[Rfam]
RNA sequence: AUUGUUCACUCUCCCUCAAAGGCUUCUAGCAGCGCCAGGCAUAUGUGCAUGGCGAGGCUGGAGGUCAUCGGGGAGAGUGGACAAUAU
Numbered sequence: 001a002u003u004g005u006u007c008a009c010u011c012u013c014c015c016u017c018a019a020a021g022g023c024u025u026c027u028a029g030c031a032g033c034g035c036c037a038g039g040c041a042u043a044u045g046u047g048c049a050u051g052g053c054g055a056g057g058c059u060g061g062a063g064g065u066c067a068u069c070g071g072g073g074a075g076a077g078u079g080g081a082c083a084a085u086a087u
Stems, first nucleotide, its partner, number of pairs: 006080010017070001019068001021066010